[Rfam]
The record is a 94-nucleotide RNA sequence from Papaver nudicaule, which matches "Small nucleolar RNA snoR53Y" in Rfam.
A search with the family's covariance model found it, with a score of 50 bits.
It is annotated as a C/D-box small nucleolar RNA.
Clan: snoR53 clan.
RNA sequence: GUUCCCAGUGAUGAUUAACAACCAUGCUAAUUCUGAGAUUCCUUUGGUUUUGAUGAAUUGAAUCUUUUGUUUAUCCAGAACGUCUGAGGGAACU
Numbered sequence: 001g002u003u004c005c006c007a008g009u010g011a012u013g014a015u016u017a018a019c020a021a022c023c024a025u026g027c028u029a030a031u032u033c034u035g036a037g038a039u040u041c042c043u044u045u046g047g048u049u050u051u052g053a054u055g056a057a058u059u060g061a062a063u064c065u066u067u068u069g070u071u072u073a074u075c076c077a078g079a080a081c082g083u084c085u086g087a088g089g090g091a092a093c094u
Stems, first nucleotide, its partner, number of pairs: 001093005
Dot-bracket structure: (((((...................................................................................))))).